[Rfam]
The record is a 169-nucleotide RNA sequence from Collinsella aerofaciens, which matches "Lysine riboswitch aptamer" in Rfam. The source organism's lineage runs through Bacteria, Bacillati, Coriobacteriales, Coriobacteriaceae and Collinsella.
RNA sequence: CCACUUGAUAGAGGCGCGGGCACGAAGAGCCGCGGGCGAGCCGGCAGGCUUUGACCCCGCGGGGAGGCGAAACCCGCCGAACUGGGUUUUUCAGGCACGAACAACCUGGUGGGCCUGCGGGAAACACCCGCAGGACUGUCUGCAGCAAUGCGGGAGCGCUAUCCGGACA
Numbered sequence: 001c002c003a004c005u006u007g008a009u010a011g012a013g014g015c016g017c018g019g020g021c022a023c024g025a026a027g028a029g030c031c032g033c034g035g036g037c038g039a040g041c042c043g044g045c046a047g048g049c050u051u052u053g054a055c056c057c058c059g060c061g062g063g064g065a066g067g068c069g070a071a072a073c074c075c076g077c078c079g080a081a082c083u084g085g086g087u088u089u090u091u092c093a094g095g096c097a098c099g100a101a102c103a104a105c106c107u108g109g110u111g112g113g114c115c116u117g118c119g120g121g122a123a124a125c126a127c128c129c130g131c132a133g134g135a136c137u138g139u140c141u142g143c144a145g146c147a148a149u150g151c152g153g154g155a156g157c158g159c160u161a162u163c164c165g166g167a168c169a
Stems, first nucleotide, its partner, number of pairs: 007163005016077005023069002030062007081110008090101003111137002114134008139154006
About this RNA: The match comes from Rfam's covariance-model search (80 bits). About the family: Riboswitches are metabolite binding domains within certain messenger RNAs that serve as precision sensors for their corresponding targets. Allosteric rearrangement of mRNA structure is mediated by ligand binding, and this results in modulation of gene expression.